[Rfam]
RNA sequence: UUUCCAGUGUAAGUAUAUUCCAUGCAAUAUUUGGGACAUACUUGUACUAAAA
Number, nucleotide and partner (000 for none) at each position: 001u000002u000003u000004c000005c000006a048007g047008u046009g045010u044011a043012a042013g000014u040015a039016u038017a000018u036019u035020c034021c033022a031023u000024g000025c000026a000027a000028u000029a000030u000031u022032u000033g021034g020035g019036a018037c000038a016039u015040a014041c000042u012043u011044g010045u009046a008047c007048u006049a000050a000051a000052a000
The family of this 52-nucleotide RNA sequence from Diceros bicornis is "mir-1302 microRNA precursor family". The family's consensus secondary structure was predicted with WAR. For this family Rfam cites "Application of massively parallel sequencing to microRNA profiling and discovery in human embryonic stem cells" (Morin et al., Genome Res, 2008). Gene Ontology terms of the family: RISC complex and miRNA-mediated post-transcriptional gene silencing.